[Rfam]
RNA sequence: UGUUGGCUUAGUUAGGAGGCAUACAUAGAAAGAAAGACUAGGAAGAACUUGUUUCUUUUCUUGUUCUUGUUCUUCUGAGGCCUUUUUGAGUGGGACUUUCAGUGAUUUUUCAUCUAUCUACUGUCCCCCAAGAAGCCUUAGACAUUU
Dot-bracket structure: ...((.(((......))).))..............((.((...((((........))))..)).))........(((((((...((((.(.(((((..(....................)..))))))))))..)))))))......